[Rfam]
A member of the RNA family "Small nucleolar RNA U49" from Cucumis melo, 68 nucleotides long. The family is grouped with related families in Rfam's "SNORD49 clan". A search with the family's covariance model found it, with a score of 47 bits. Taxonomically the source falls in Cucumis (Eukaryota, Magnoliopsida, fabids, Benincaseae). The family has 5 seed sequences and 340 matches in Rfam 15.1.
RNA sequence: UUCCAAUGACGAAACACUCCCACAAUUGAUAGGAAGUGCCGUAUGACACUCCAAAAAGCAGCGAGAAG
Numbered sequence: 001u002u003c004c005a006a007u008g009a010c011g012a013a014a015c016a017c018u019c020c021c022a023c024a025a026u027u028g029a030u031a032g033g034a035a036g037u038g039c040c041g042u043a044u045g046a047c048a049c050u051c052c053a054a055a056a057a058g059c060a061g062c063g064a065g066a067a068g
Stems, first nucleotide, its partner, number of pairs: 015061001033052001035050004
Dot-bracket structure: ..............(.................(.((((........)))).)........).......